[Rfam]
RNA sequence: GGCGAUAAACUGCCAUCGUAAUAAACCCAUCGGACCCGGGGGCAGUACCCGGCGCCUCCACCAAAACCUCCUCUGUUUUCAGAGGCUUACGGGGGCGAAACAGGAUCGACGAGGGCGUAAAGGGUGUGUUUUCGCUCGGCAUUGUACCACCGUCAUCGGGCUAAUUUUAUAGUUGCAAACGACAACUAUGCUGAGGCACGUCUCGCUGCGUAA
Numbered sequence: 001g002g003c004g005a006u007a008a009a010c011u012g013c014c015a016u017c018g019u020a021a022u023a024a025a026c027c028c029a030u031c032g033g034a035c036c037c038g039g040g041g042g043c044a045g046u047a048c049c050c051g052g053c054g055c056c057u058c059c060a061c062c063a064a065a066a067c068c069u070c071c072u073c074u075g076u077u078u079u080c081a082g083a084g085g086c087u088u089a090c091g092g093g094g095g096c097g098a099a100a101c102a103g104g105a106u107c108g109a110c111g112a113g114g115g116c117g118u119a120a121a122g123g124g125u126g127u128g129u130u131u132u133c134g135c136u137c138g139g140c141a142u143u144g145u146a147c148c149a150c151c152g153u154c155a156u157c158g159g160g161c162u163a164a165u166u167u168u169a170u171a172g173u174u175g176c177a178a179a180c181g182a183c184a185a186c187u188a189u190g191c192u193g194a195g196g197c198a199c200g201u202c203u204c205g206c207u208g209c210g211u212a213a
Base pairs, nucleotide, nucleotide: 001136002135003134004133005132014126015125016124017123026115027114028113030112031111032110036052037051038050039049040048053097054096055095056094057093058092059091137152138151139150

permuted transfer-messenger RNA: a 213-nucleotide RNA from Pelagibacterium luteolum. By type it is a non-coding RNA gene. Pairs were carried over by alignment from the consensus structure, which is taken from published work. Bacterial tmRNA, also known as 10Sa RNA or SsrA, is named for its dual tRNA and mRNA-like properties. Its role is to liberate the mRNA from a stalled ribosome. To accomplish this part of the tmRNA is used as a reading frame that ends in a translation stop signal. The broken mRNA is replaced in the ribosome by the tmRNA and translation of the tmRNA leads to addition of a proteolysis tag to the incomplete protein enabling recognition by a protease.